[Rfam]
RNA sequence: CUUUAGUUGCAUACCUCACGACUAAUGACAACCCUUAACCGCCCCUGCGGUAAAGCCUCUCAUUAGCCGCGCAGAAACUCUGCAAACAAAGAUCACACUAAGCAACAAUACAUAAGUUUGGUCCGGAUUGCUGCCGAUUGCUCGAAAAAAGGGGCCAUAAAGGCCCCCUUUU
Numbered sequence: 001c002u003u004u005a006g007u008u009g010c011a012u013a014c015c016u017c018a019c020g021a022c023u024a025a026u027g028a029c030a031a032c033c034c035u036u037a038a039c040c041g042c043c044c045c046u047g048c049g050g051u052a053a054a055g056c057c058u059c060u061c062a063u064u065a066g067c068c069g070c071g072c073a074g075a076a077a078c079u080c081u082g083c084a085a086a087c088a089a090a091g092a093u094c095a096c097a098c099u100a101a102g103c104a105a106c107a108a109u110a111c112a113u114a115a116g117u118u119u120g121g122u123c124c125g126g127a128u129u130g131c132u133g134c135c136g137a138u139u140g141c142u143c144g145a146a147a148a149a150a151g152g153g154g155c156c157a158u159a160a161a162g163g164c165c166c167c168c169u170u171u172u
Base pairs, nucleotide, nucleotide: 001091002090003089004088006087007086009083010082011081017074019071020070022066023065024064025063026062027061028060098125151167152166153165154164155163156162
RNA: SraG RNA